[Rfam]
RNA sequence: GUGUGGGCCCAAAACCCUCACACUCCUCACACCCCCCGGCUCGGCGCGUCCGAGCUUU
Numbered sequence: 001g002u003g004u005g006g007g008c009c010c011a012a013a014a015c016c017c018u019c020a021c022a023c024u025c026c027u028c029a030c031a032c033c034c035c036c037c038g039g040c041u042c043g044g045c046g047c048g049u050c051c052g053a054g055c056u057u058u
Stems, first nucleotide, its partner, number of pairs: 001021003005017003038056007